[Rfam]
RNA sequence: GGGUGGCGUGCGCCUGUAGUCCCAGCUGCCAGGGAGGCUGAGCCCGAUGGAUUGCUUGAGCCCAGGAGUUCUGGGCUGCUGUGUGCUGUGCCAAGCGGGCAUCUAAGCUAAGGCCACCAUCAAUAUGGUGACCUGCGGGGAGCUGCGGGACACCAGGUUGACUAAUGAGGGGUGAACCGGCACAGGUUGGAGAUGGAGCAGGUCAAAGCUCCCGUGGCGGUCAGUAGCGGGAUCAUGCCUGUGAAUAACCAUGCCAGCGUAGCCUGGGCAACACAGAGACCUGCGGGCUCCC
Numbered sequence: 001g002g003g004u005g006g007c008g009u010g011c012g013c014c015u016g017u018a019g020u021c022c023c024a025g026c027u028g029c030c031a032g033g034g035a036g037g038c039u040g041a042g043c044c045c046g047a048u049g050g051a052u053u054g055c056u057u058g059a060g061c062c063c064a065g066g067a068g069u070u071c072u073g074g075g076c077u078g079c080u081g082u083g084u085g086c087u088g089u090g091c092c093a094a095g096c097g098g099g100c101a102u103c104u105a106a107g108c109u110a111a112g113g114c115c116a117c118c119a120u121c122a123a124u125a126u127g128g129u130g131a132c133c134u135g136c137g138g139g140g141a142g143c144u145g146c147g148g149g150a151c152a153c154c155a156g157g158u159u160g161a162c163u164a165a166u167g168a169g170g171g172g173u174g175a176a177c178c179g180g181c182a183c184a185g186g187u188u189g190g191a192g193a194u195g196g197a198g199c200a201g202g203u204c205a206a207a208g209c210u211c212c213c214g215u216g217g218c219g220g221u222c223a224g225u226a227g228c229g230g231g232a233u234c235a236u237g238c239c240u241g242u243g244a245a246u247a248a249c250c251a252u253g254c255c256a257g258c259g260u261a262g263c264c265u266g267g268g269c270a271a272c273a274c275a276g277a278g279a280c281c282u283g284c285g286g287g288c289u290c291c292c
Stems, first nucleotide, its partner, number of pairs: 002009001020035003040290007049281001052279002055276002060269007071262003075258004080253004085249001087247003091243001095242008103231002107228004112222004117217004121160004126155005132149007169212005179204003187196003
Dot-bracket structure: .(......)..........(((..........)))....(((((((..(..((.((...(((((((....(((.((((.((((.(.(((.(...((((((((((..((((.((((.((((((((.(((((.(((((((....))))))).))))).))))........(((((.....(((.....(((....))).....)))...))))).)))).))))..)))).))...))))))))).))).))))).)))).)))))))))).....)).)).)..)))))))..